[Rfam]
RNA: sodF sRNA
RNA sequence: CCUGCUCGUGAUCGUCUUCUCACCCUUCACGGAGCGGGCAGGAGACAGGCCCCCCGCGCGGUCACAUCGCGCGGGGGCCUGUC
Numbered sequence: 001c002c003u004g005c006u007c008g009u010g011a012u013c014g015u016c017u018u019c020u021c022a023c024c025c026u027u028c029a030c031g032g033a034g035c036g037g038g039c040a041g042g043a044g045a046c047a048g049g050c051c052c053c054c055c056g057c058g059c060g061g062u063c064a065c066a067u068c069g070c071g072c073g074g075g076g077g078c079c080u081g082u083c
Base pairs, nucleotide, nucleotide: 001038002037003036004035005034006033007032008030009029010028011027014024044083045082046081047080048079049078050077051076053075054074055073056072057071058070059069060068